This 131-nucleotide RNA sequence from Trichechus manatus belongs to the Rfam family "Small nucleolar RNA SNORA41". A search with the family's covariance model found it, with a score of 125 bits. Lineage of the source: Eukaryota > Eumetazoa > Tetrapoda > Sirenia > Trichechus manatus. Pairs were carried over by alignment from the consensus structure, which was predicted with PFOLD.

[Rfam]
RNA sequence: UUCCACAGCUACUGGUCUGCAGCUGUUCUUAGGAUAGCAGUUGUGGCAUUCCUCUGUGGGAAAGAAACAGUUACAUGAUUAAACACCUCUCUCAGCAAAACAUAAAGUGGGCAUAUGUCUGACAGACACAA
Numbered sequence: 001u002u003c004c005a006c007a008g009c010u011a012c013u014g015g016u017c018u019g020c021a022g023c024u025g026u027u028c029u030u031a032g033g034a035u036a037g038c039a040g041u042u043g044u045g046g047c048a049u050u051c052c053u054c055u056g057u058g059g060g061a062a063a064g065a066a067a068c069a070g071u072u073a074c075a076u077g078a079u080u081a082a083a084c085a086c087c088u089c090u091c092u093c094a095g096c097a098a099a100a101c102a103u104a105a106a107g108u109g110g111g112c113a114u115a116u117g118u119c120u121g122a123c124a125g126a127c128a129c130a131a
Base pairs, nucleotide, nucleotide: 003059004058005057006056017046018045019044020043021042022041023040024039025038073120075118076117077116086111087110088109089107090106092102
Source information:
From the family's description: ACA41 is a member of the H/ACA class of snoRNA that guide the sites of modification of uridines to pseudouridines. On this family, see Huttenhofer et al., EMBO J 2001: "RNomics: an experimental approach that identifies 201 candidates for novel, small, non-messenger RNAs in mouse". Rfam links the family to the GO terms nucleolus and RNA processing.